[Rfam]
Nucleotides: 114
Base pairs, nucleotide, nucleotide: 004038005037006036007035008034009033015030016029017028018027019026044067045066046065047064048063049062050061052059072107073106074105075104076103077102078101079100080099081098082097083096084095085094086093087092
Number, partner (000 for none) and nucleotide at each position: 001000a002000u003000a004038u005037c006036c007035u008034u009033u010000a011000a012000u013000c014000g015030c016029a017028g018027u019026c020000c021000a022000g023000a024000g025000a026019g027018g028017c029016u030015g031000a032000c033009a034008a035007a036006g037005g038004a039000a040000u041000u042000u043000c044067a045066g046065a047064a048063g049062g050061a051000u052059g053000c054000a055000c056000c057000g058000c059052c060000u061050u062049c063048c064047u065046u066045c067044u068000g069000u070000c071000u072107g073106c074105c075104c076103u077102c078101u079100u080099u081098g082097u083096c084095u085094a086093u087092g088000c089000c090000c091000u092087c093086a094085u095084g096083g097082a098081u099080g100079a101078a102077g103076a104075g105074g106073g107072u108000u109000u110000u111000u112000u113000c114000u
A member of the RNA family "PyrR binding site" from Jeotgalibacillus sp. S-D1, 114 nucleotides long.
It scores 56 bits against the family's covariance model.
Its family is annotated with pyrimidine nucleobase biosynthetic process and pyrimidine nucleobase transport in the Gene Ontology.
It is annotated as a cis-regulatory element.